Rfam assigns this 68-nucleotide RNA from a Nocardioidaceae bacterium to the family "ASdes TB sRNA". Pairs were carried over by alignment from the consensus structure, which is taken from published work. The family's RNA type in Rfam is small RNA. The source organism's lineage runs through Bacteria, Bacillati, Actinomycetes, Propionibacteriales and Nocardioidaceae. A search with the family's covariance model found it, with a score of 80 bits.
[Rfam]
RNA sequence: AGUUCGACCGGGUCGACACCGCGGGUCACCACCAGAUAGUCGCGCAUCACGACGCCGUGCCGGUUCUC
Numbered sequence: 001a002g003u004u005c006g007a008c009c010g011g012g013u014c015g016a017c018a019c020c021g022c023g024g025g026u027c028a029c030c031a032c033c034a035g036a037u038a039g040u041c042g043c044g045c046a047u048c049a050c051g052a053c054g055c056c057g058u059g060c061c062g063g064u065u066c067u068c
Stems, first nucleotide, its partner, number of pairs: 004063003008059001011030003015027003035056001037054001040052003044048001

Description:
The literature on the family includes a 2009 paper in Mol Microbiol by Arnvig and Young, "Identification of small RNAs in Mycobacterium tuberculosis".